[Rfam]
RNA: GA-cis RNA
Organism: Schaedlerella arabinosiphila
RNA sequence: UUUAGGAGGAAAGCAAUGCGGAGCAUUUUUUCAUGCUUUCCGACGAUUUGCCCUCGAACGAAUGUGAGGGGGCGCUGCCUUAG
Numbered sequence: 001u002u003u004a005g006g007a008g009g010a011a012a013g014c015a016a017u018g019c020g021g022a023g024c025a026u027u028u029u030u031u032c033a034u035g036c037u038u039u040c041c042g043a044c045g046a047u048u049u050g051c052c053c054u055c056g057a058a059c060g061a062a063u064g065u066g067a068g069g070g071g072g073c074g075c076u077g078c079c080u081u082a083g
Stems, first nucleotide, its partner, number of pairs: 008041006016026003050073003054069002058065002